Small nucleolar RNA snoR97: a 105-nucleotide sequence from Panicum miliaceum.
The family's consensus secondary structure was predicted with WAR.
The literature on the family includes a 2002 paper in Curr Biol by Marker et al., "Experimental RNomics: identification of 140 candidates for small non-messenger RNAs in the plant Arabidopsis thaliana".
The match comes from Rfam's covariance-model search (94 bits).
The source organism's lineage runs through Eukaryota, Streptophyta, Liliopsida, Panicum and Panicum sect. Panicum.
Rfam classes the family as an H/ACA-box small nucleolar RNA.
[Rfam]
RNA sequence: GCUUUCUGAUUUGCGUGGAGGCUGAAAAACUCGGAGAGUGUGUGUUGUCAUCAGCUUCGUCUCCUUGUUACCGUGAGAUGGGAGUUAAAUAACAGCCCGAGAUUG
Numbered sequence: 001g002c003u004u005u006c007u008g009a010u011u012u013g014c015g016u017g018g019a020g021g022c023u024g025a026a027a028a029a030c031u032c033g034g035a036g037a038g039u040g041u042g043u044g045u046u047g048u049c050a051u052c053a054g055c056u057u058c059g060u061c062u063c064c065u066u067g068u069u070a071c072c073g074u075g076a077g078a079u080g081g082g083a084g085u086u087a088a089a090u091a092a093c094a095g096c097c098c099g100a101g102a103u104u105g
Base pairs, nucleotide, nucleotide: 041099042098044096045095046094047093053086054085055084056083057082058081060078061077062076063075
Dot-bracket structure: ........................................((.((((.....((((((.((((...........))))..))))))......)))).))......